RNA sequence: AGUUUGACUAAAGCGCCUGGACUAUCUUCCGUUCGGAAAGAAGGUAGUUGACGAGGAGGAGGUUCAUCGAGUAUCGGCGGAUGCCUCCCGGUUGGAUUCACCUCAAUCGUAAGCUUUUAUUCUAAAACAAAGGGGUGACCCUUUGCACAAAGAAUCGAAGCAAGGUGAUU
Numbered sequence: 001a002g003u004u005u006g007a008c009u010a011a012a013g014c015g016c017c018u019g020g021a022c023u024a025u026c027u028u029c030c031g032u033u034c035g036g037a038a039a040g041a042a043g044g045u046a047g048u049u050g051a052c053g054a055g056g057a058g059g060a061g062g063u064u065c066a067u068c069g070a071g072u073a074u075c076g077g078c079g080g081a082u083g084c085c086u087c088c089c090g091g092u093u094g095g096a097u098u099c100a101c102c103u104c105a106a107u108c109g110u111a112a113g114c115u116u117u118u119a120u121u122c123u124a125a126a127a128c129a130a131a132g133g134g135g136u137g138a139c140c141c142u143u144u145g146c147a148c149a150a151a152g153a154a155u156c157g158a159a160g161c162a163a164g165g166u167g168a169u170u
Stems, first nucleotide, its partner, number of pairs: 020049008029040001058088005067077004089109006114160004119155002128145007

This 170-nucleotide RNA from Pontibacillus chungwhensis belongs to the Rfam family "glmS glucosamine-6-phosphate activated ribozyme aptamer". Taxonomically the source falls in Pontibacillus chungwhensis (Bacteria, Bacillati, Bacillota, Pontibacillus).